[Rfam]
The record is a 117-nucleotide RNA from Coptis chinensis, which matches "Small nucleolar RNA snoR104" in Rfam. Rfam links the family to the GO terms RNA processing and nucleolus. NCBI's taxonomy places the organism under Eukaryota, Euphyllophyta, Magnoliopsida, Mesangiospermae, Coptis. A search with the family's covariance model found it, with a score of 62 bits. The base pairs follow the family's consensus structure, which was predicted with WAR. For this family Rfam cites "Experimental RNomics: identification of 140 candidates for small non-messenger RNAs in the plant Arabidopsis thaliana" (Marker et al., Curr Biol, 2002).

RNA sequence: AGGGAGCAUCCAUAAGCGAGAUGUUAACUGAUACAAUCUUCCUACACAGUUUUUGGUAAUUUCCUGCUUGUAGCUCUGCAGAUUAGUUCUAUAAGUCUCAAAUUACCUCACAUUUGC
Numbered sequence: 001a002g003g004g005a006g007c008a009u010c011c012a013u014a015a016g017c018g019a020g021a022u023g024u025u026a027a028c029u030g031a032u033a034c035a036a037u038c039u040u041c042c043u044a045c046a047c048a049g050u051u052u053u054u055g056g057u058a059a060u061u062u063c064c065u066g067c068u069u070g071u072a073g074c075u076c077u078g079c080a081g082a083u084u085a086g087u088u089c090u091a092u093a094a095g096u097c098u099c100a101a102a103u104u105a106c107c108u109c110a111c112a113u114u115u116g117c
Stems, first nucleotide, its partner, number of pairs: 001029002005025006054110003066096008076086002
Dot-bracket structure: ((..((((((.........))))))..))........................(((.........((((((((..((.......))..))))))))...........))).......